[Rfam]
RNA sequence: AACGGGGAUUAUAUACUGCAAAAAAAUCGUGAAUGUCCGAGUGAUCAUGGCGGUAGCUGCAUGCCUUCUGGUAUGUUGCCGUGGCUCGAUGACGUCCAUCGCAGGGGUGAUGAGUUGAUA
Numbered sequence: 001a002a003c004g005g006g007g008a009u010u011a012u013a014u015a016c017u018g019c020a021a022a023a024a025a026a027u028c029g030u031g032a033a034u035g036u037c038c039g040a041g042u043g044a045u046c047a048u049g050g051c052g053g054u055a056g057c058u059g060c061a062u063g064c065c066u067u068c069u070g071g072u073a074u075g076u077u078g079c080c081g082u083g084g085c086u087c088g089a090u091g092a093c094g095u096c097c098a099u100c101g102c103a104g105g106g107g108u109g110a111u112g113a114g115u116u117g118a119u120a
Base pairs, nucleotide, nucleotide: 003039004038005037006036007034010031011030012029053119054118056115057114058113062109063108064107065106066105068104069103070102071100073099074098075097077094078093080091081090082089
Rfam assigns this 120-nucleotide RNA from Aspergillus clavatus to the family "A. fumigatus sRNA Afu_203". Rfam classes the family as a small RNA. NCBI's taxonomy places the organism under Eukaryota, Fungi, Aspergillus, Aspergillus subgen. Fumigati, Aspergillus clavatus.